[Rfam]
RNA: tRNA
RNA sequence: CCCGAGGUGGUGAAAUUGGUAGACGCGGCGGACUCAAAAUCCGCUGUCAGAGAUGACGUGUCGGUUCGAGUCCGACCCUCGGGA
Number, nucleotide and partner (000 for none) at each position: 001c083002c082003c081004g080005a079006g078007g077008u000009g000010g026011u025012g024013a000014a000015a000016u000017u000018g000019g000020u000021a000022g000023a000024c012025g011026c010027g000028g044029c043030g042031g041032a040033c000034u000035c000036a000037a000038a000039a000040u032041c031042c030043g029044c028045u000046g000047u000048c000049a000050g000051a000052g000053a000054u000055g000056a000057c000058g000059u000060g076061u075062c074063g073064g072065u000066u000067c000068g000069a000070g000071u000072c064073c063074g062075a061076c060077c007078c006079u005080c004081g003082g002083g001084a000